[Rfam]
RNA sequence: CGUGAACGACAGGGGAGCGCCGCUGAACGGGGCGCUGAGAGUGCGGACCAUCCGCAGACCCUCGAACCUGAUCCGGCUCGUACCGGUGUAGGGAGUCGGGCAUCUCGCCCA
Numbered sequence: 001c002g003u004g005a006a007c008g009a010c011a012g013g014g015g016a017g018c019g020c021c022g023c024u025g026a027a028c029g030g031g032g033c034g035c036u037g038a039g040a041g042u043g044c045g046g047a048c049c050a051u052c053c054g055c056a057g058a059c060c061c062u063c064g065a066a067c068c069u070g071a072u073c074c075g076g077c078u079c080g081u082a083c084c085g086g087u088g089u090a091g092g093g094a095g096u097c098g099g100g101c102a103u104c105u106c107g108c109c110c111a
Base pairs, nucleotide, nucleotide: 007098008097009096010095011062012061013060014059017035018034019033020032021031042056043055044054045053046052067092068091069090070089073086074085075084076083
Dot-bracket structure: ......((((((((..(((((.........)))))......(((((.....)))))..))))....((((..((((......))))..))))..)))).............
TPP riboswitch aptamer (THI element): a 111-nucleotide RNA sequence from Flavimobilis marinus. Lineage of the source: Bacteria > Bacillati > Actinomycetes > Jonesiaceae > Flavimobilis. From the family's description: Vitamin B(1) in its active form thiamin pyrophosphate (TPP) is an essential coenzyme that is synthesised by coupling of pyrimidine and thiazole moieties in bacteria.